[Rfam]
RNA sequence: GUGUUCCUUAGAGUUCCUCUGAACGCUUCAUAUAUAUAUACACAUAUUAUUAAAUGAAUGAAGUGUUUGGGGGAACUCUUGGGUGCAA
Dot-bracket structure: .....(((..((((((((((.((((((((((.(((..................))).)))))))).))))))))))))..))).....

Shown here is an 88-nucleotide RNA sequence from Arachis hypogaea, a member of the family "mir-395 microRNA precursor family".
The source organism's lineage runs through Eukaryota, Spermatophyta, Pentapetalae, rosids and Arachis.
The base pairs follow the family's consensus structure, which was predicted with PFOLD.
It scores 67 bits against the family's covariance model.
The literature on the family includes a 2004 paper in Mol Cell by Jones-Rhoades and Bartel, "Computational Identification of Plant MicroRNAs and Their Targets, Including a Stress-Induced miRNA".
Rfam's curators write: mir-395 was identified in both Arabidopsis thaliana and Oryza sativa computationally and was later experimentally verified. mir-395 is thought to target mRNAs coding for ATP sulphurylases. The mature sequence is excised from the 3' arm of the hairpin.